[Rfam]
Nucleotides: 063
Base pairs, nucleotide, nucleotide: 004060005059006058007057008056009055010054011053012052013051014050020046021045022044023043025041026040027039
Number, partner (000 for none) and nucleotide at each position: 001000g002000g003000g004060u005059u006058a007057a008056u009055g010054c011053u012052a013051a014050u015000u016000g017000u018000g019000a020046u021045a022044g023043g024000g025041g026040u027039u028000g029000a030000a031000u032000u033000g034000u035000g036000a037000a038000u039027g040026a041025c042000u043023c044022c045021u046020g047000c048000c049000a050014g051013u052012u053011a054010g055009c056008a057007u058006u059005a060004g061000c062000c063000c

Rfam assigns this 63-nucleotide RNA from Albula goreensis to the family "mir-155 microRNA precursor family". NCBI's taxonomy places the organism under Eukaryota, Eumetazoa, Gnathostomata, Teleostei, Albula.